[Rfam]
RNA sequence: UUGCACCUGUGUGUUGUAUUGUCCUACUUUCUUGCCAUGCUAGUAGGAUAUAACACUGGUGCAGAAAGGAAAAGCUGCUCCUUGGAGCAGCAGCGGCCAGACAACCGUAGAGAUAGGUCCACAGAUGAAUGGCUAACAUGCUGUUUGUCUACUAAAUCUAUCCCACAUUU
Numbered sequence: 001u002u003g004c005a006c007c008u009g010u011g012u013g014u015u016g017u018a019u020u021g022u023c024c025u026a027c028u029u030u031c032u033u034g035c036c037a038u039g040c041u042a043g044u045a046g047g048a049u050a051u052a053a054c055a056c057u058g059g060u061g062c063a064g065a066a067a068g069g070a071a072a073a074g075c076u077g078c079u080c081c082u083u084g085g086a087g088c089a090g091c092a093g094c095g096g097c098c099a100g101a102c103a104a105c106c107g108u109a110g111a112g113a114u115a116g117g118u119c120c121a122c123a124g125a126u127g128a129a130u131g132g133c134u135a136a137c138a139u140g141c142u143g144u145u146u147g148u149c150u151a152c153u154a155a156a157u158c159u160a161u162c163c164c165a166c167a168u169u170u
Stems, first nucleotide, its partner, number of pairs: 002063005008055003015052003021049008110164001112162006128146002